[Rfam]
Shown here is an 81-nucleotide sequence from Tyzzerella sp. An114, a member of the family "ZMP/ZTP riboswitch aptamer (pfl RNA motif)". The match comes from Rfam's covariance-model search (56 bits). The base pairs follow the family's consensus structure, which is taken from published work. Taxonomically the source falls in Tyzzerella (Bacteria, Bacillota, Clostridia, Lachnospirales).
RNA sequence: AAAUGGUUAUACGACUGACGGAAGUGGAAUAAACCACAUGAAGUAUAGCAUAGUAAUAGGCCGACCGUCUGGGCAAAAAGU
Numbered sequence: 001a002a003a004u005g006g007u008u009a010u011a012c013g014a015c016u017g018a019c020g021g022a023a024g025u026g027g028a029a030u031a032a033a034c035c036a037c038a039u040g041a042a043g044u045a046u047a048g049c050a051u052a053g054u055a056a057u058a059g060g061c062c063g064a065c066c067g068u069c070u071g072g073g074c075a076a077a078a079a080g081u
Stems, first nucleotide, its partner, number of pairs: 006049007015040001017069005024037004060074003